[Rfam]
RNA sequence: CGGUUUCCUGCUUCAACGGUGCUUGGACGGAACCAG
Numbered sequence: 001c002g003g004u005u006u007c008c009u010g011c012u013u014c015a016a017c018g019g020u021g022c023u024u025g026g027a028c029g030g031a032a033c034c035a036g
Stems, first nucleotide, its partner, number of pairs: 001036001003034001005032004010028001012027005017021001
A member of the RNA family "Iron response element I" from Cebus imitator, 36 nucleotides long. The family has 62 seed sequences and 6,829 matches in Rfam 15.1. Rfam classes the family as a cis-regulatory element. The family's consensus secondary structure is taken from published work. Lineage of the source: Eukaryota > Chordata > Gnathostomata > Euteleostomi > Cebus. A reference for the family is Huang et al. (1999), "An atypical iron-responsive element (IRE) within crayfish ferritin mRNA and an iron regulatory protein 1 (IRP1)-like protein from crayfish hepatopancreas", Insect Biochem Mol Biol.